[Rfam]
RNA: TPP riboswitch aptamer (THI element)
RNA sequence: GGCCCGUCCAAGGGGAGUUCCGGCAAGGAACUGAGAGGCCGACGGCCGCCGACAUGAUCGGCGCAGCGCGCGGCGACCCUCACGAACCUGAUCCAGGUCAUGCUGGCGUAGGGAUGGGAAUGCCGCAGGCG
Numbered sequence: 001g002g003c004c005c006g007u008c009c010a011a012g013g014g015g016a017g018u019u020c021c022g023g024c025a026a027g028g029a030a031c032u033g034a035g036a037g038g039c040c041g042a043c044g045g046c047c048g049c050c051g052a053c054a055u056g057a058u059c060g061g062c063g064c065a066g067c068g069c070g071c072g073g074c075g076a077c078c079c080u081c082a083c084g085a086a087c088c089u090g091a092u093c094c095a096g097g098u099c100a101u102g103c104u105g106g107c108g109u110a111g112g113g114a115u116g117g118g119a120a121u122g123c124c125g126c127a128g129g130c131g
Stems, first nucleotide, its partner, number of pairs: 007118004011080004017031005038074004087112004093106004